[Rfam]
Record summary: Group II catalytic intron D1-D4-3: a 195-nucleotide RNA sequence from Anaerosporobacter mobilis. Pairs were carried over by alignment from the consensus structure.
RNA sequence: AUUAUCGUAAGGUGGUGUCUGAAGGAGAUGCGGAAAGUCGAGAGACCCGUAGACGGUUUAGCAGACCGAAACGAAAAGUGAAGCACAUGUUGCGGCAGGGCAAGUUGAUGACCGUGCGAAAGAACGGGAAAUCUAAAUCAUUUAUUCAAAGAGCCAGUCGGGUAAAUGGAAGUUGUCAUGUGAAGGUGCUCGGUA
Number, nucleotide and partner (000 for none) at each position: 001a016002u015003u014004a013005u012006c011007g000008u000009a000010a000011g006012g005013u004014g003015g002016u001017g000018u000019c000020u000021g000022a000023a000024g000025g000026a000027g000028a000029u000030g000031c000032g000033g000034a000035a000036a000037g000038u000039c000040g000041a000042g000043a000044g000045a000046c000047c000048c000049g000050u000051a000052g000053a000054c000055g000056g000057u000058u000059u000060a000061g000062c000063a000064g000065a194066c193067c192068g191069a000070a000071a187072c186073g000074a000075a000076a181077a000078g179079u178080g177081a176082a174083g173084c172085a000086c168087a167088u166089g000090u000091u000092g000093c000094g000095g163096c162097a000098g000099g159100g158101c157102a000103a000104g154105u153106u000107g133108a132109u131110g000111a000112c127113c126114g125115u124116g000117c000118g000119a000120a000121a000122g000123a000124a115125c114126g113127g112128g000129a000130a000131a109132u108133c107134u000135a000136a000137a000138u000139c000140a000141u000142u000143u000144a000145u000146u000147c000148a000149a000150a000151g000152a000153g105154c104155c000156a000157g101158u100159c099160g000161g000162g096163u095164a000165a000166a088167u087168g086169g000170a000171a000172g084173u083174u082175g000176u081177c080178a079179u078180g000181u076182g000183a000184a000185g000186g072187u071188g000189c000190u000191c068192g067193g066194u065195a000